[Rfam]
RNA sequence: UGGGUUUGUCCUAAGUCACACUUCUUCAAGUUUGACCAAGUUUAUAGAAAAAACGUAGCAACAUCUACAAUACCAAAUUAAUAUAUUUGUUUUGUGUUGGAAAUGCUACUACAUUUUUUUAUAAAGUUGGCCAAACUUGAAGAAGUUUGACUUAGGACAAACCCAA
Dot-bracket structure: ....(((((.((((((((.(((((((....((((..........((((((((...(((.(.(((.(.((...(.((((..........)))).)...)).).))).).)))..))))))))..........))))....))))))).)))))))).))))).....